[Rfam]
This 404-nucleotide sequence from Hansschlegelia quercus belongs to the Rfam family "Bacterial RNase P class A". The family's RNA type in Rfam is ribozyme. Rfam's curators write: Ribonuclease P (RNase P) is a ubiquitous endoribonuclease, found in archaea, bacteria and eukarya as well as chloroplasts and mitochondria. Rfam links the family to the GO terms dimeric ribonuclease P complex, ribonuclease P activity and tRNA processing. The base pairs follow the family's consensus structure, which is taken from published work.
RNA sequence: CCAGUCGGCCGGACGGCCGCUUCGAUCGCAAGAUCGGGGAGGAAAGUCCGGGCUCCACGGAAGCACGGCGCCGGAUAACGUCCGGCGGGGGCGACCCCAGGGAAAGUGCCACAGAGAGCAGACCGCCUGCGGCUUCGGCCGCAGGUAAGGGUGAAAGGGUGCGGUAAGAGCGCACCGCGCGACCGGUAACGGGAGCGGCACGGCAAACCCCGCCGGGAGCAAGACCGAAUAGGGGCGACACGGAUUGCGUUCUCGGACGCAAGACAGGCCCGUUUCCGGGCCGUCGCCCGGGUUGGUCGCUAGAGGCGUCCGGUAACGGGCGUCCCAGAGGAAUGGCCGUCACGUGGGAUCCGUCUUCGGGCGGCCCCGCCAUACAAAACCCGGCUUACAGGCCGACUGGCGAU
Numbered sequence: 001c002c003a004g005u006c007g008g009c010c011g012g013a014c015g016g017c018c019g020c021u022u023c024g025a026u027c028g029c030a031a032g033a034u035c036g037g038g039g040a041g042g043a044a045a046g047u048c049c050g051g052g053c054u055c056c057a058c059g060g061a062a063g064c065a066c067g068g069c070g071c072c073g074g075a076u077a078a079c080g081u082c083c084g085g086c087g088g089g090g091g092c093g094a095c096c097c098c099a100g101g102g103a104a105a106g107u108g109c110c111a112c113a114g115a116g117a118g119c120a121g122a123c124c125g126c127c128u129g130c131g132g133c134u135u136c137g138g139c140c141g142c143a144g145g146u147a148a149g150g151g152u153g154a155a156a157g158g159g160u161g162c163g164g165u166a167a168g169a170g171c172g173c174a175c176c177g178c179g180c181g182a183c184c185g186g187u188a189a190c191g192g193g194a195g196c197g198g199c200a201c202g203g204c205a206a207a208c209c210c211c212g213c214c215g216g217g218a219g220c221a222a223g224a225c226c227g228a229a230u231a232g233g234g235g236c237g238a239c240a241c242g243g244a245u246u247g248c249g250u251u252c253u254c255g256g257a258c259g260c261a262a263g264a265c266a267g268g269c270c271c272g273u274u275u276c277c278g279g280g281c282c283g284u285c286g287c288c289c290g291g292g293u294u295g296g297u298c299g300c301u302a303g304a305g306g307c308g309u310c311c312g313g314u315a316a317c318g319g320g321c322g323u324c325c326c327a328g329a330g331g332a333a334u335g336g337c338c339g340u341c342a343c344g345u346g347g348g349a350u351c352c353g354u355c356u357u358c359g360g361g362c363g364g365c366c367c368c369g370c371c372a373u374a375c376a377a378a379a380c381c382c383g384g385c386u387u388a389c390a391g392g393c394c395g396a397c398u399g400g401c402g403a404u
Stems, first nucleotide, its partner, number of pairs: 001400010011389001012341007020039008044387003048384005053219004062275002066215005071085005086100001087098004101210002106208002108204003123150002125146009158176006177199001178197003183192003223298004233289006267282005305324008